[Rfam]
RNA sequence: UGGUAGAUGCACCCUGAUAACUGACUCCCUAGUGGACUUUCGGCUACUAGGGAUUUUUUUG
Numbered sequence: 001u002g003g004u005a006g007a008u009g010c011a012c013c014c015u016g017a018u019a020a021c022u023g024a025c026u027c028c029c030u031a032g033u034g035g036a037c038u039u040u041c042g043g044c045u046a047c048u049a050g051g052g053a054u055u056u057u058u059u060u061g
Stems, first nucleotide, its partner, number of pairs: 002013003026053010